RNA sequence: ACAAUGAUACUCCUGUUUAGUCACAGGUCGAGCGUUGAAGCGGCAAAUCUUUUGCCGUGAGCCGUCGCAACCAAUGAGGGCAGCCGGUAGAGAACCUGCCGGGGGUGAGAUUCCCGUGG
Numbered sequence: 001a002c003a004a005u006g007a008u009a010c011u012c013c014u015g016u017u018u019a020g021u022c023a024c025a026g027g028u029c030g031a032g033c034g035u036u037g038a039a040g041c042g043g044c045a046a047a048u049c050u051u052u053u054g055c056c057g058u059g060a061g062c063c064g065u066c067g068c069a070a071c072c073a074a075u076g077a078g079g080g081c082a083g084c085c086g087g088u089a090g091a092g093a094a095c096c097u098g099c100c101g102g103g104g105g106u107g108a109g110a111u112u113c114c115c116g117u118g119g
Stems, first nucleotide, its partner, number of pairs: 012116001013083006084102003088098003103115003
Source information:
This 119-nucleotide RNA sequence belongs to the Rfam family "pemK RNA".